[Rfam]
RNA sequence: AUGUACCACAAGGGGGGCCGAGUUAGUCGGCUGAGAUUGCGCACGAAUUUGCGCUGACUCUUUGAACCUGUAAGUUAACACUUGCGUAGGGAUGUGGAUAGAAACCGAC
Numbered sequence: 001a002u003g004u005a006c007c008a009c010a011a012g013g014g015g016g017g018c019c020g021a022g023u024u025a026g027u028c029g030g031c032u033g034a035g036a037u038u039g040c041g042c043a044c045g046a047a048u049u050u051g052c053g054c055u056g057a058c059u060c061u062u063u064g065a066a067c068c069u070g071u072a073a074g075u076u077a078a079c080a081c082u083u084g085c086g087u088a089g090g091g092a093u094g095u096g097g098a099u100a101g102a103a104a105c106c107g108a109c
Stems, first nucleotide, its partner, number of pairs: 006097005011061004016055001017031005039054004067090004071084004
RNA: TPP riboswitch aptamer (THI element)
Organism: Lysinibacillus sp. 2017